[Rfam]
RNA sequence: ACAACAUUCGGUCCGUCGAUCUACCAAGCAAUAUCACACGCACAGUGGAAGAUGUUCUCUUUGUAGC
Numbered sequence: 001a002c003a004a005c006a007u008u009c010g011g012u013c014c015g016u017c018g019a020u021c022u023a024c025c026a027a028g029c030a031a032u033a034u035c036a037c038a039c040g041c042a043c044a045g046u047g048g049a050a051g052a053u054g055u056u057c058u059c060u061u062u063g064u065a066g067c
Base pairs, nucleotide, nucleotide: 004064005063006062010058011057015053016052017051020049021048022047023046024045028041029040
RNA: mir-2774 microRNA precursor family